[Rfam]
RNA: t44 RNA
RNA sequence: AAUUCAAGCUAAUAAUCACACACACACGUCGACACAUGCGCCGGGGUGCCCGAAAGGGUCGGAUGUAUGGGAUGUGUGGAGGCCUAAC
Numbered sequence: 001a002a003u004u005c006a007a008g009c010u011a012a013u014a015a016u017c018a019c020a021c022a023c024a025c026a027c028g029u030c031g032a033c034a035c036a037u038g039c040g041c042c043g044g045g046g047u048g049c050c051c052g053a054a055a056g057g058g059u060c061g062g063a064u065g066u067a068u069g070g071g072a073u074g075u076g077u078g079g080a081g082g083c084c085u086a087a088c
Stems, first nucleotide, its partner, number of pairs: 023078008035069005041062003048059004